Source information: The family of this 80-nucleotide sequence from Megaselia scalaris is "mir-980 microRNA precursor family". Rfam links the family to the GO terms miRNA-mediated post-transcriptional gene silencing and RISC complex. It scores 50 bits against the family's covariance model.

[Rfam]
RNA sequence: AUUUCAGACCGGCCAUUCAUCGGGCUUUGCUAACUGGUUUUUAAUGUUGUUAGCUGCCCAUUGAAGGGUCUUUUUGAAUC
Numbered sequence: 001a002u003u004u005c006a007g008a009c010c011g012g013c014c015a016u017u018c019a020u021c022g023g024g025c026u027u028u029g030c031u032a033a034c035u036g037g038u039u040u041u042u043a044a045u046g047u048u049g050u051u052a053g054c055u056g057c058c059c060a061u062u063g064a065a066g067g068g069u070c071u072u073u074u075u076g077a078a079u080c
Base pairs, nucleotide, nucleotide: 004077005076006075007074008073011070012069013068014067017064018063019062023058024057030053031052032051033050034049